[Rfam]
RNA sequence: AAUGUAACAUGCCCGUUGUGGAACUACUCUGAUGAAUAUUUGUUAUAUAAUUGUUUUUGGGUAACGGGGUGUUACAGAUAU
Numbered sequence: 001a002a003u004g005u006a007a008c009a010u011g012c013c014c015g016u017u018g019u020g021g022a023a024c025u026a027c028u029c030u031g032a033u034g035a036a037u038a039u040u041u042g043u044u045a046u047a048u049a050a051u052u053g054u055u056u057u058u059g060g061g062u063a064a065c066g067g068g069g070u071g072u073u074a075c076a077g078a079u080a081u
Base pairs, nucleotide, nucleotide: 003076004075005074006073007072008071009070010069012068013067014066015065016064017063
Dot-bracket structure: ..((((((((.((((((.............................................)))))))))))))).....